The record is a 135-nucleotide sequence from Pipistrellus kuhlii, which matches "Small nucleolar RNA SNORA32" in Rfam. ACA32 is a member of the H/ACA class of snoRNA that guide the sites of modification of uridines to pseudouridines. It is annotated as an H/ACA-box small nucleolar RNA. The match comes from Rfam's covariance-model search (93 bits). The family's consensus secondary structure was predicted with RNAfold.
[Rfam]
RNA sequence: UGGUCAUUACCAAGGCUUUUAGAAUGCAGUUUCUCAUUUGCCAUGGACAUGACCACAAAACAUUUCCCCAAUAGAUUUGUCCCCCCCCCCCCCCGCUAUGUUAAUAGCAUAGAAUUCAGCCUACUGGGAAUAAAU
Numbered sequence: 001u002g003g004u005c006a007u008u009a010c011c012a013a014g015g016c017u018u019u020u021a022g023a024a025u026g027c028a029g030u031u032u033c034u035c036a037u038u039u040g041c042c043a044u045g046g047a048c049a050u051g052a053c054c055a056c057a058a059a060a061c062a063u064u065u066c067c068c069c070a071a072u073a074g075a076u077u078u079g080u081c082c083c084c085c086c087c088c089c090c091c092c093c094c095g096c097u098a099u100g101u102u103a104a105u106a107g108c109a110u111a112g113a114a115u116u117c118a119g120c121c122u123a124c125u126g127g128g129a130a131u132a133a134a135u
Base pairs, nucleotide, nucleotide: 003053004052005051006050007049010046011045012044026041027040028039029038067128068127069126070125074121076119077118